[Rfam]
RNA sequence: UGAUGUAAGGGCAAUCUCUGGCUGUGGUAUCUGUCACCCCACUGACUGCCAGGGUUGAUCCAGCCCAUGUGGCUGUUUAAGUAGGUAUUCAUUCCCUUCCUCCCUCAACACUCCAUGUGUGUCCCUCCUGAAGCUGCACCCUCGGUCAAACAGGACGACCUGCCUGAUAGAGAUGGUCCCAUUCUAUGGCCUCGGGAUGGAGACUCCCAAAAAAGGAUACAAGCCUCCGCAGGCAACUUGUUCCUUCUACUUUAUUCCCUCUUGAAUUCUACUUUAUUCCUUCUUGAAAAAAUGAAUAUUUUU
Numbered sequence: 001u002g003a004u005g006u007a008a009g010g011g012c013a014a015u016c017u018c019u020g021g022c023u024g025u026g027g028u029a030u031c032u033g034u035c036a037c038c039c040c041a042c043u044g045a046c047u048g049c050c051a052g053g054g055u056u057g058a059u060c061c062a063g064c065c066c067a068u069g070u071g072g073c074u075g076u077u078u079a080a081g082u083a084g085g086u087a088u089u090c091a092u093u094c095c096c097u098u099c100c101u102c103c104c105u106c107a108a109c110a111c112u113c114c115a116u117g118u119g120u121g122u123c124c125c126u127c128c129u130g131a132a133g134c135u136g137c138a139c140c141c142u143c144g145g146u147c148a149a150a151c152a153g154g155a156c157g158a159c160c161u162g163c164c165u166g167a168u169a170g171a172g173a174u175g176g177u178c179c180c181a182u183u184c185u186a187u188g189g190c191c192u193c194g195g196g197a198u199g200g201a202g203a204c205u206c207c208c209a210a211a212a213a214a215g216g217a218u219a220c221a222a223g224c225c226u227c228c229g230c231a232g233g234c235a236a237c238u239u240g241u242u243c244c245u246u247c248u249a250c251u252u253u254a255u256u257c258c259c260u261c262u263u264g265a266a267u268u269c270u271a272c273u274u275u276a277u278u279c280c281u282u283c284u285u286g287a288a289a290a291a292a293u294g295a296a297u298a299u300u301u302u303u
Base pairs, nucleotide, nucleotide: 002113003112006107008105009104010103011102014098020096021095026089027088028087029086030085031084032083033082034081038075039072040071041070045068048064049063122176123175125172126171127170128145129144130143131142133141146167147166148165153163155161200257201256202255213246214245215244216243219241220240221239222238223237271303275298276297277296278295279294281290282289